[Rfam]
Nucleotides: 099
Base pairs, nucleotide, nucleotide: 002094003093004092005091006090007089012083013082014081015080017079018078019077020076025075026074027073
Number, partner (000 for none) and nucleotide at each position: 001000g002094u003093g004092u005091u006090a007089g008000c009000u010000u011000a012083g013082c014081u015080g016000a017079g018078u019077g020076g021000u022000u023000a024000c025075u026074u027073c028000a029000u030000a031000u032000c033000g034000c035000u036000u037000c038000a039000u040000a041000c042000u043000u044000c045000a046000u047000u048000g049000g050000g051000a052000g053000u054000c055000u056000c057000u058000c059000g060000a061000g062000g063000u064000u065000c066000c067000c068000g069000g070000u071000u072000c073027g074026g075025a076020c077019c078018a079017c080015u081014g082013g083012c084000g085000c086000c087000g088000u089007c090006u091005g092004a093003c094002g095000u096000c097000u098000a099000a